[Rfam]
RNA: Metazoan signal recognition particle RNA
RNA sequence: GCCGGGCGCGGUGGCGUGUGUCUGUAAUCCCAGCUGCUUGGGAGGCUGAGGCUGUCGGAUUGCUUGAGUCCAGGAGUUCUGGUCUACUCUGUGCUAUGUCGAUCGGGUGUCCACGCUAAGUUCGGUAUCAAUAUGGUGACCCCAGGGGAGCCCAGAGCCACCAGGUUGCACUAAGGAGGGGUGAACCGGCCCAGGUCGGAAACGGAGCAGGUCAAAACCCCCGUGCUGAUCAGUAGUGGGAUAGCGCCUGUGAAUAGCCGGUGUAGAGCAGCCUGGAUAAUACAGUGAAACACAGUCUCUC
Numbered sequence: 001g002c003c004g005g006g007c008g009c010g011g012u013g014g015c016g017u018g019u020g021u022c023u024g025u026a027a028u029c030c031c032a033g034c035u036g037c038u039u040g041g042g043a044g045g046c047u048g049a050g051g052c053u054g055u056c057g058g059a060u061u062g063c064u065u066g067a068g069u070c071c072a073g074g075a076g077u078u079c080u081g082g083u084c085u086a087c088u089c090u091g092u093g094c095u096a097u098g099u100c101g102a103u104c105g106g107g108u109g110u111c112c113a114c115g116c117u118a119a120g121u122u123c124g125g126u127a128u129c130a131a132u133a134u135g136g137u138g139a140c141c142c143c144a145g146g147g148g149a150g151c152c153c154a155g156a157g158c159c160a161c162c163a164g165g166u167u168g169c170a171c172u173a174a175g176g177a178g179g180g181g182u183g184a185a186c187c188g189g190c191c192c193a194g195g196u197c198g199g200a201a202a203c204g205g206a207g208c209a210g211g212u213c214a215a216a217a218c219c220c221c222c223g224u225g226c227u228g229a230u231c232a233g234u235a236g237u238g239g240g241a242u243a244g245c246g247c248c249u250g251u252g253a254a255u256a257g258c259c260g261g262u263g264u265a266g267a268g269c270a271g272c273c274u275g276g277a278u279a280a281u282a283c284a285g286u287g288a289a290a291c292a293c294a295g296u297c298u299c300u301c
Stems, first nucleotide, its partner, number of pairs: 001046003004023007028043003048299008060288005068278007079271003083267005089261003093258005099252001104250007111240002114238005120231001122229007129168004134163005140157001142155001145152002169176001171175001178221005188213004196205003